The record is a 114-nucleotide sequence from Mycoplana dimorpha, which matches "TPP riboswitch aptamer (THI element)" in Rfam. The family's consensus secondary structure is taken from published work. About the family: Vitamin B(1) in its active form thiamin pyrophosphate (TPP) is an essential coenzyme that is synthesised by coupling of pyrimidine and thiazole moieties in bacteria. The previously detected thiamin-regulatory element, thi box was extended, resulting in a new, highly conserved RNA secondary structure, the THI element, which is widely distributed in eubacteria and also occurs in some archaea. The source organism's lineage runs through Bacteria, Pseudomonadati, Pseudomonadota, Alphaproteobacteria and Mycoplana. Rfam links the family to the GO term thiamine pyrophosphate binding.
RNA sequence: CCUGCUCUAACGGGGUGCCCACGGGUCGCAAGACGCCUGAGGCUGAGAGGCAAUUGCCAACCCGCGGAACCUGAUCCGGUUUGCACCGGCGGAGGGAUUAGACGGCACAUUCCA
Numbered sequence: 001c002c003u004g005c006u007c008u009a010a011c012g013g014g015g016u017g018c019c020c021a022c023g024g025g026u027c028g029c030a031a032g033a034c035g036c037c038u039g040a041g042g043c044u045g046a047g048a049g050g051c052a053a054u055u056g057c058c059a060a061c062c063c064g065c066g067g068a069a070c071c072u073g074a075u076c077c078g079g080u081u082u083g084c085a086c087c088g089g090c091g092g093a094g095g096g097a098u099u100a101g102a103c104g105g106c107a108c109a110u111u112c113c114a
Stems, first nucleotide, its partner, number of pairs: 006102005011064004017043003050057002070095003076089004